Actinobacteria sRNA Ms_IGR-5: a 249-nucleotide RNA from Sphaerisporangium rufum. The base pairs follow the family's consensus structure. It scores 55 bits against the family's covariance model. Lineage of the source: Bacteria > Bacillati > Actinomycetota > Actinomycetes > Sphaerisporangium.
RNA sequence: ACGCAGAAGGGAGGUGGUCCGAAACAAUGGUUGAUUGUCAUAGGGCUAGCGAGGUGGCUGUCCGCUAGGACAUCGCCAGUCAGGACCUGUCGUCCCGACGUCGUGCCUUCCCUGAGGGCACGGGUGACGUCCGGCGAAUCCAAGACAGACACCGGAACCCCGGGCAGCCGGCGGGAGGAGCGCACGCUCCUCCCUUGGUCCAGCCGGCCCGUCUCACCACGAGGCGGAGCACGCCCGGGGUUCUUCUGU
Numbered sequence: 001a002c003g004c005a006g007a008a009g010g011g012a013g014g015u016g017g018u019c020c021g022a023a024a025c026a027a028u029g030g031u032u033g034a035u036u037g038u039c040a041u042a043g044g045g046c047u048a049g050c051g052a053g054g055u056g057g058c059u060g061u062c063c064g065c066u067a068g069g070a071c072a073u074c075g076c077c078a079g080u081c082a083g084g085a086c087c088u089g090u091c092g093u094c095c096c097g098a099c100g101u102c103g104u105g106c107c108u109u110c111c112c113u114g115a116g117g118g119c120a121c122g123g124g125u126g127a128c129g130u131c132c133g134g135c136g137a138a139u140c141c142a143a144g145a146c147a148g149a150c151a152c153c154g155g156a157a158c159c160c161c162g163g164g165c166a167g168c169c170g171g172c173g174g175g176a177g178g179a180g181c182g183c184a185c186g187c188u189c190c191u192c193c194c195u196u197g198g199u200c201c202a203g204c205c206g207g208c209c210c211g212u213c214u215c216a217c218c219a220c221g222a223g224g225c226g227g228a229g230c231a232c233g234c235c236c237g238g239g240g241u242u243c244u245u246c247u248g249u
Stems, first nucleotide, its partner, number of pairs: 013062006063136004068131002071129001073127001075125003154244012